MIR2617 microRNA precursor family: an 89-nucleotide RNA from Medicago truncatula.
RNA sequence: GUGUAGUGUGACAUGUCCGUUGGGAAUUACUCUAAUGCAUGAUUUAUUUACUAUUUAAUUGAUUUUAGGUAACAGGGUGUUACAUGAAG
Numbered sequence: 001g002u003g004u005a006g007u008g009u010g011a012c013a014u015g016u017c018c019g020u021u022g023g024g025a026a027u028u029a030c031u032c033u034a035a036u037g038c039a040u041g042a043u044u045u046a047u048u049u050a051c052u053a054u055u056u057a058a059u060u061g062a063u064u065u066u067a068g069g070u071a072a073c074a075g076g077g078u079g080u081u082a083c084a085u086g087a088a089g
Stems, first nucleotide, its partner, number of pairs: 002089001004087001006085009016076002019073003
Dot-bracket structure: .(.(.(((((((((.((.(((.................................................))).))))))))))).).)
Rfam links the family to the GO terms RISC complex and miRNA-mediated post-transcriptional gene silencing.